[Rfam]
RNA sequence: UGUUCGAAGUUCGCAGCCUGAUUAGUUGAGGCUGGCGGCUGGCGAUUUUUUAAUCGCCAGCCU
Numbered sequence: 001u002g003u004u005c006g007a008a009g010u011u012c013g014c015a016g017c018c019u020g021a022u023u024a025g026u027u028g029a030g031g032c033u034g035g036c037g038g039c040u041g042g043c044g045a046u047u048u049u050u051u052a053a054u055c056g057c058c059a060g061c062c063u
Stems, first nucleotide, its partner, number of pairs: 014034005037062010
Background
Pseudomonas sRNA P26: a 63-nucleotide sequence from Xenorhabdus japonica. On this family, see Livny et al., Nucleic Acids Res 2006: "Identification of 17 Pseudomonas aeruginosa sRNAs and prediction of sRNA-encoding genes in 10 diverse pathogens using the bioinformatic tool sRNAPredict2". A search with the family's covariance model found it, with a score of 53 bits. Taxonomically the source falls in Xenorhabdus (Bacteria, Pseudomonadati, Gammaproteobacteria, Enterobacterales). Rfam's curators write: This small RNA (sRNA) was computationally identified in the genome of the opportunistic pathogen Pseudomonas aeruginosa and its expression verified by northern blot analysis. P26 is conserved across many Gammaproteobacteria species and appears to be consistently located between the DNA directed RNA polymerase (beta subunit) and 50S ribosomal protein L7/L12 genes.